[Rfam]
RNA: Glycine riboswitch aptamer
Organism: Polaromonas sp. JS666
RNA sequence: AGCGUGGUAUCGGGAGAGUCUGCCGUCCAGCAUUGCCUGGCGGCGGCGCCGAAGGAGCAACCGCCCCGGAAACUCUCAGGCAAAUGAACCGGUACCACCCA
Numbered sequence: 001a002g003c004g005u006g007g008u009a010u011c012g013g014g015a016g017a018g019u020c021u022g023c024c025g026u027c028c029a030g031c032a033u034u035g036c037c038u039g040g041c042g043g044c045g046g047c048g049c050c051g052a053a054g055g056a057g058c059a060a061c062c063g064c065c066c067c068g069g070a071a072a073c074u075c076u077c078a079g080g081c082a083a084a085u086g087a088a089c090c091g092g093u094a095c096c097a098c099c100c101a
Stems, first nucleotide, its partner, number of pairs: 006096008020046008048081003051077002055075003061069002